nhaA-I RNA: a 57-nucleotide sequence from Allobosea sp. PAMC 26642.
Rfam's curators write: Acidobacteria, Alphaproteobacteria, Betaproteobacteria and Gammaproteobacteria, Verrucomicrobia, cand. division NC10.
Pairs were carried over by alignment from the consensus structure, which is taken from published work.
RNA sequence: GGGUGUUCCGCUCCAAUCGUUGAGCGGGCAGGACGAGCGUAGGUCGGGCCGCCAGCG
Numbered sequence: 001g002g003g004u005g006u007u008c009c010g011c012u013c014c015a016a017u018c019g020u021u022g023a024g025c026g027g028g029c030a031g032g033a034c035g036a037g038c039g040u041a042g043g044u045c046g047g048g049c050c051g052c053c054a055g056c057g
Base pairs, nucleotide, nucleotide: 005029006028008027009026010025011024012023038057039056040055042053043052044051

Taxonomically the source falls in Allobosea (Bacteria, Pseudomonadati, Alphaproteobacteria, Hyphomicrobiales).